[Rfam]
RNA sequence: CAAAGAUGGUGCUUACCUCAACAACGUCUUUGAAAGUAGGCACUCUAAGACGUUAUUUACUUCAGCACCGUCUUAGAAUGCCUACUUUCAGAGACGUUGGUGAGGUAAGCACCGUCUUU
Dot-bracket structure: ...((((.((((((((((((.((((((((((((((((((.((.(((((((((.(.((......)).).))))))))).)).)))))))))))))))))).)))))))))))).))))..
Background: Shown here is a 119-nucleotide RNA sequence from Glycine soja, a member of the family "MIR4374 microRNA precursor family". The family's consensus secondary structure was predicted with RNAalifold. The source organism's lineage runs through Eukaryota, Mesangiospermae, Papilionoideae, Phaseoleae and Glycine subgen. Soja. Rfam 15.1 lists 72 matches to the family in 2 species.